[Rfam]
RNA: Guanidine-II riboswitch aptamer (mini-ykkC)
Organism: Desulfobulbus oligotrophicus
RNA sequence: AAGUGGGGACGACCUCACCGCUCCAAUCUCUAUCGGGGACGACCUCG
Numbered sequence: 001a002a003g004u005g006g007g008g009a010c011g012a013c014c015u016c017a018c019c020g021c022u023c024c025a026a027u028c029u030c031u032a033u034c035g036g037g038g039a040c041g042a043c044c045u046c047g
Base pairs, nucleotide, nucleotide: 003018004017005016006015007014008013034047035046036045037044038043